Shown here is a 164-nucleotide RNA from Desulfocapsa sulfexigens, a member of the family "Group II catalytic intron D1-D4-3".
The base pairs follow the family's consensus structure.
A search with the family's covariance model found it, with a score of 114 bits.
NCBI's taxonomy places the organism under Bacteria, Thermodesulfobacteriota, Desulfobulbia, Desulfocapsaceae, Desulfocapsa sulfexigens.
About the family: Group II introns are found in rRNA, tRNA and mRNA of organelles in fungi, plants and protists, and also in mRNA in bacteria.

RNA sequence: GUUACCGUGAGGUAGGGUCUGAAGGAAGCCGGAUGGCAAAGAUAUGGGGUGACGAACAGAAAUAUCAUAUAAGGCCGAGUCUCUGGGGCAGUCAGCACAACAUAAUUACGCCCGGGAACAGGAGAUACGGUAAAUGAUGCGCUCGCAUAUCGGAAGUUCACGCU
Numbered sequence: 001g002u003u004a005c006c007g008u009g010a011g012g013u014a015g016g017g018u019c020u021g022a023a024g025g026a027a028g029c030c031g032g033a034u035g036g037c038a039a040a041g042a043u044a045u046g047g048g049g050u051g052a053c054g055a056a057c058a059g060a061a062a063u064a065u066c067a068u069a070u071a072a073g074g075c076c077g078a079g080u081c082u083c084u085g086g087g088g089c090a091g092u093c094a095g096c097a098c099a100a101c102a103u104a105a106u107u108a109c110g111c112c113c114g115g116g117a118a119c120a121g122g123a124g125a126u127a128c129g130g131u132a133a134a135u136g137a138u139g140c141g142c143u144c145g146c147a148u149a150u151c152g153g154a155a156g157u158u159c160a161c162g163c164u
Base pairs, nucleotide, nucleotide: 002015003014004013005012006011028164030162031161036157037156041151042150043149044148045147046146047144048143049142050141051140063139064138065137066136067135068134074131075130076129079126080125081124082123083122084121085113086112087111091106092105094103
Dot-bracket structure: .(((((....)))))............(.((....((...(((((((((((...........((((((.....(((..(((((((((...((.(........).))....))).......))))))..)))..))))))))))).))))))....))...)).)